[Rfam]
RNA sequence: UGGACAAAUUAUUGUAUUCGACUAUAUUUACAGCAUGAAAUAGGGGAUUACAACUGUUUUUAAACAGAAAGUGAAUUAAUUAAUAUAAUAGACUCAU
Numbered sequence: 001u002g003g004a005c006a007a008a009u010u011a012u013u014g015u016a017u018u019c020g021a022c023u024a025u026a027u028u029u030a031c032a033g034c035a036u037g038a039a040a041u042a043g044g045g046g047a048u049u050a051c052a053a054c055u056g057u058u059u060u061u062a063a064a065c066a067g068a069a070a071g072u073g074a075a076u077u078a079a080u081u082a083a084u085a086u087a088a089u090a091g092a093c094u095c096a097u
Stems, first nucleotide, its partner, number of pairs: 003095002009091007017083002020081002023078002026076006036064001037060007
Shown here is a 97-nucleotide sequence from Nicotiana sylvestris, a member of the family "MIR6152 microRNA precursor family". Gene Ontology terms of the family: RISC complex and miRNA-mediated post-transcriptional gene silencing. The family has 2 seed sequences and 5,807 matches in Rfam 15.1. The source organism's lineage runs through Eukaryota, Euphyllophyta, Pentapetalae, Solanales and Nicotiana. A search with the family's covariance model found it, with a score of 78 bits.